[Rfam]
RNA sequence: GAGUCUAGCAUAUACGCAAGUUAUUGGGUAGUAAACCUAAUUUAAAAGAUAAAAAGCAUAAUGAAAGUAAAGAUUAUCUUUGGUAUAAUUGAUAUGUGAUCUAUAUAUAUAUAUAUAUAUGUAUGUAUAUAGCGUAACAUAACCCCGUUCAUGUUGCAUGCAAUAGGGCGGAGGUAGAGCGUAUAUGCUGGGACCCGAAAGAUGGUGAACUAUACCUGAGCAGGAUGAAGCCAGAGGAAACUCUGGUGAAGGUCCGAAGCGAUUCUGACGUGCAAAUCGAUCGUCUGACUUUGGUAUAGGGGCGAAAGACUAAUCGAACUAUCUAGUAGCUGGUU
Numbered sequence: 001g002a003g004u005c006u007a008g009c010a011u012a013u014a015c016g017c018a019a020g021u022u023a024u025u026g027g028g029u030a031g032u033a034a035a036c037c038u039a040a041u042u043u044a045a046a047a048g049a050u051a052a053a054a055a056g057c058a059u060a061a062u063g064a065a066a067g068u069a070a071a072g073a074u075u076a077u078c079u080u081u082g083g084u085a086u087a088a089u090u091g092a093u094a095u096g097u098g099a100u101c102u103a104u105a106u107a108u109a110u111a112u113a114u115a116u117a118u119a120u121g122u123a124u125g126u127a128u129a130u131a132g133c134g135u136a137a138c139a140u141a142a143c144c145c146c147g148u149u150c151a152u153g154u155u156g157c158a159u160g161c162a163a164u165a166g167g168g169c170g171g172a173g174g175u176a177g178a179g180c181g182u183a184u185a186u187g188c189u190g191g192g193a194c195c196c197g198a199a200a201g202a203u204g205g206u207g208a209a210c211u212a213u214a215c216c217u218g219a220g221c222a223g224g225a226u227g228a229a230g231c232c233a234g235a236g237g238a239a240a241c242u243c244u245g246g247u248g249a250a251g252g253u254c255c256g257a258a259g260c261g262a263u264u265c266u267g268a269c270g271u272g273c274a275a276a277u278c279g280a281u282c283g284u285c286u287g288a289c290u291u292u293g294g295u296a297u298a299g300g301g302g303c304g305a306a307a308g309a310c311u312a313a314u315c316g317a318a319c320u321a322u323c324u325a326g327u328a329g330c331u332g333g334u335u
Base pairs, nucleotide, nucleotide: 005191006190007189008188009187010186011185012184013183014182015181016180017179020057021056022055025052027050029048061068062067093141094140095139096138097137101132102131103130104129105128106127107126108125109124110123111122112121143174144173145171146170147169148168149167150166155162156161194333195332197330201323202322203321204320205319206318210299211298212297213296214295215294216293218291219290220289221287223255224254225253226252230247231246232245233244234243235242236241259284260283261282262281264280265279267278268277301311302310
The record is a 335-nucleotide part of an RNA from Brugia malayi, which matches "Eukaryotic large subunit ribosomal RNA" in Rfam.
Lineage of the source: Eukaryota > Protostomia > Chromadorea > Filarioidea > Brugia.